[Rfam]
RNA sequence: UGGUAUUGUCCUAAGUCAAACUUCUCCAACUUUGACCAAGUUUGUAGAAAAAUAUAUAUUAACAUCUACUAUGCCAAAUAAAUGCACUAACAAGAUAUAUUUCAUGGUGGAUUUAAUGAAACUGAUUUGAUGUUGUAGGUGUUGGUCCAUUUUUCUAGAAACUUGGUCAACAUUAGAGAAGUUUGACUUAGGACAAAACUAA
Number, nucleotide and partner (000 for none) at each position: 001u000002g000003g000004u000005a000006u196007u195008g194009u193010c000011c191012u190013a189014a188015g187016u186017c185018a184019a183020a182021c181022u180023u179024c178025u177026c176027c000028a000029a000030c000031u170032u169033u000034g168035a167036c000037c000038a000039a000040g000041u000042u000043u000044g000045u157046a156047g155048a154049a153050a152051a151052a150053u000054a000055u000056a000057u000058a146059u145060u000061a143062a142063c141064a140065u139066c138067u137068a136069c135070u000071a000072u000073g000074c000075c129076a128077a127078a126079u125080a000081a000082a000083u000084g000085c000086a000087c000088u000089a000090a000091c000092a000093a000094g000095a000096u000097a000098u000099a000100u000101u000102u000103c000104a000105u000106g000107g000108u000109g000110g000111a000112u000113u000114u000115a000116a000117u000118g000119a000120a000121a000122c000123u000124g000125a079126u078127u077128u076129g075130a000131u000132g000133u000134u000135g069136u068137a067138g066139g065140u064141g063142u062143u061144g000145g059146u058147c000148c000149a000150u052151u051152u050153u049154u048155c047156u046157a045158g000159a000160a000161a000162c000163u000164u000165g000166g000167u035168c034169a032170a031171c000172a000173u000174u000175a000176g026177a025178g024179a023180a022181g021182u020183u019184u018185g017186a016187c015188u014189u013190a012191g011192g000193a009194c008195a007196a006197a000198a000199c000200u000201a000202a000
This 202-nucleotide RNA sequence from Panicum miliaceum belongs to the Rfam family "MIR1435 microRNA precursor family". Rfam links the family to the GO terms miRNA-mediated post-transcriptional gene silencing and RISC complex. Pairs were carried over by alignment from the consensus structure, which was predicted with RNAalifold.